[Rfam]
RNA: ZMP/ZTP riboswitch aptamer (pfl RNA motif)
RNA sequence: CUAUCCCGUCGCAACUGGCGAGGGUGGACACCACCGGGGAGCGGCAACCUGACGCCUGACCGGUCGUCCGCCUGGGCCGGGAAG
Numbered sequence: 001c002u003a004u005c006c007c008g009u010c011g012c013a014a015c016u017g018g019c020g021a022g023g024g025u026g027g028a029c030a031c032c033a034c035c036g037g038g039g040a041g042c043g044g045c046a047a048c049c050u051g052a053c054g055c056c057u058g059a060c061c062g063g064u065c066g067u068c069c070g071c072c073u074g075g076g077c078c079g080g081g082a083a084g
Base pairs, nucleotide, nucleotide: 003050008045009044010043011042012041015038016037017072018071019070020069024034025033026032027031061079062078063077064076065075